tRNA: a 74-nucleotide sequence from Hartmannibacter diazotrophicus. The base pairs follow the family's consensus structure, which is taken from published work. By type it is a transfer RNA. About the family: Transfer RNA (tRNA) molecules are approximately 80 nucleotides in length.

RNA sequence: GCAGUUGUAGCUCAGUUGGUUAGAGCGUCGGAUUGUGGCUCCGAAGGUCCCCGGUUCGAGCCCGGGCAACUGUA
Numbered sequence: 001g002c003a004g005u006u007g008u009a010g011c012u013c014a015g016u017u018g019g020u021u022a023g024a025g026c027g028u029c030g031g032a033u034u035g036u037g038g039c040u041c042c043g044a045a046g047g048u049c050c051c052c053g054g055u056u057c058g059a060g061c062c063c064g065g066g067c068a069a070c071u072g073u074a
Stems, first nucleotide, its partner, number of pairs: 001073007010026004028044005050066005
The organism belongs to Hartmannibacter, within Bacteria.